[Rfam]
RNA sequence: CUGCACAGUGAACACCCAAGUGUGCUCUGUAGUUCCCUUGGCCUUGACUUUGUGCUAAAGUCUUUUCUUUUCCUCUGCAUUGAAAGUACUGUGUCCUUUUAAAUGUAUUCAGAAAAUCAGCACACCA
Numbered sequence: 001c002u003g004c005a006c007a008g009u010g011a012a013c014a015c016c017c018a019a020g021u022g023u024g025c026u027c028u029g030u031a032g033u034u035c036c037c038u039u040g041g042c043c044u045u046g047a048c049u050u051u052g053u054g055c056u057a058a059a060g061u062c063u064u065u066u067c068u069u070u071u072c073c074u075c076u077g078c079a080u081u082g083a084a085a086g087u088a089c090u091g092u093g094u095c096c097u098u099u100u101a102a103a104u105g106u107a108u109u110c111a112g113a114a115a116a117u118c119a120g121c122a123c124a125c126c127a
Stems, first nucleotide, its partner, number of pairs: 003055006010049001013046002016041005022035001024033003057063001074113004078105004082100005088094001

Shown here is a 127-nucleotide sequence from Rattus norvegicus, a member of the family "Small nucleolar RNA SNORA22". Rfam's curators put it in the seed alignment. Rfam classes the family as an H/ACA-box small nucleolar RNA.